[Rfam]
RNA sequence: CAGCCUGUUGCUAUGCGGGCUACUUUAGUGCCUGGACUGUGUAACCAAUCAGUCAGGUACCUGAAGUAGCGCGCGUAACGGCCGGCA
Dot-bracket structure: ........((.(.(.((.((((.......(((..((((............)))).)))........)))).)).).).)).......
Numbered sequence: 001c002a003g004c005c006u007g008u009u010g011c012u013a014u015g016c017g018g019g020c021u022a023c024u025u026u027a028g029u030g031c032c033u034g035g036a037c038u039g040u041g042u043a044a045c046c047a048a049u050c051a052g053u054c055a056g057g058u059a060c061c062u063g064a065a066g067u068a069g070c071g072c073g074c075g076u077a078a079c080g081g082c083c084g085g086c087a
Stems, first nucleotide, its partner, number of pairs: 009080002012077001014075001016073002019070004030058003035054004
Background
Rfam assigns this 87-nucleotide sequence from Photinus pyralis to the family "mir-275 microRNA precursor family". Taxonomically the source falls in Photinus (Eukaryota, Altocrustacea, Pterygota, Elateriformia). Gene Ontology terms of the family: RISC complex and miRNA-mediated post-transcriptional gene silencing. On this family, see Cai et al., Funct Integr Genomics 2010: "Novel microRNAs in silkworm (Bombyx mori)". The base pairs follow the family's consensus structure, which was predicted with RNAalifold. It scores 67 bits against the family's covariance model.